[Rfam]
RNA: S10-Clostridia ribosomal protein leader
RNA sequence: UAGGAGCUGUGAAGUCGGAGGUUGCUGACAAAUGAUGAAAAGUCAGGUUUUCCGGCGGAGCGAGUCUAGUUCACGAAACAGACGACAA
Number, nucleotide and partner (000 for none) at each position: 001u000002a000003g000004g000005a000006g000007c000008u000009g000010u000011g000012a000013a000014g056015u055016c054017g000018g052019a051020g050021g049022u000023u000024g000025c046026u045027g044028a043029c042030a000031a000032a000033u000034g000035a000036u000037g000038a000039a000040a000041a000042g029043u028044c027045a026046g025047g000048u000049u021050u020051u019052c018053c000054g016055g015056c014057g000058g000059a000060g000061c000062g000063a000064g086065u085066c084067u000068a000069g083070u082071u081072c000073a000074c000075g000076a000077a000078a000079c000080a000081g071082a070083c069084g066085a065086c064087a000088a000